The record is a 77-nucleotide RNA from Amycolatopsis bartoniae, which matches "SAH (S-adenosyl-L-homocysteine) riboswitch aptamer" in Rfam. Rfam 15.1 lists 1,354 matches to the family in 1,132 species. The organism belongs to Amycolatopsis, within Bacteria. A search with the family's covariance model found it, with a score of 44 bits.

RNA sequence: AAGGCCGAGAGGCGCUGCAACGGACCACCGGUCCGCCACGCUCGGCCUUCAAACCGCAACAAGGGCGCCUCCCACGA
Numbered sequence: 001a002a003g004g005c006c007g008a009g010a011g012g013c014g015c016u017g018c019a020a021c022g023g024a025c026c027a028c029c030g031g032u033c034c035g036c037c038a039c040g041c042u043c044g045g046c047c048u049u050c051a052a053a054c055c056g057c058a059a060c061a062a063g064g065g066c067g068c069c070u071c072c073c074a075c076g077a
Base pairs, nucleotide, nucleotide: 002048003047004046005045006044007043008042021035022034023033024032025031026030